Background:
Shown here is an 88-nucleotide RNA from Kribbella caucasensis, a member of the family "ZMP/ZTP riboswitch aptamer (pfl RNA motif)". Pairs were carried over by alignment from the consensus structure, which is taken from published work.
[Rfam]
RNA sequence: CUGCUGGGCCGUGACUGGCGUCUGGAUGGAUCACCAUCGUGGAGCGGCCCCGUCAUGUGACGUCGUGCCGCGCGCCUGGGCCUCUGGG
Numbered sequence: 001c002u003g004c005u006g007g008g009c010c011g012u013g014a015c016u017g018g019c020g021u022c023u024g025g026a027u028g029g030a031u032c033a034c035c036a037u038c039g040u041g042g043a044g045c046g047g048c049c050c051c052g053u054c055a056u057g058u059g060a061c062g063u064c065g066u067g068c069c070g071c072g073c074g075c076c077u078g079g080g081c082c083u084c085u086g087g088g
Base pairs, nucleotide, nucleotide: 003053004052006050007049008048009047010046011045012044015041017076018075019074020073021072026037027036028035029034065083067081068080069079